[Rfam]
RNA: freshwater-2 RNA
RNA sequence: CAUUGUUCGCCUGCAAGGGUUUUAUGCGGUACCAUCCGCGUAGAUCAUAGAACGAUCUUAACAUAAGGAGAAAAUAAAAUG
Dot-bracket structure: (.((((......)))).)....(((((((......)))))))((((.......))))........................